[Rfam]
RNA: SAM riboswitch aptamer (S box leader)
RNA sequence: ACCUUAUUUUGAGAAGCUGAGGGAUUUGGCCCAUAGAAGCUUCAGCAACCGACUUUAAAUAGCACGGUGCUAAUACCAACGAGCAACUCGAAUGAUAAGUA
Numbered sequence: 001a002c003c004u005u006a007u008u009u010u011g012a013g014a015a016g017c018u019g020a021g022g023g024a025u026u027u028g029g030c031c032c033a034u035a036g037a038a039g040c041u042u043c044a045g046c047a048a049c050c051g052a053c054u055u056u057a058a059a060u061a062g063c064a065c066g067g068u069g070c071u072a073a074u075a076c077c078a079a080c081g082a083g084c085a086a087c088u089c090g091a092a093u094g095a096u097a098a099g100u101a
Stems, first nucleotide, its partner, number of pairs: 003099006013043005021032003026079004044071004049067002051063001075093001080090004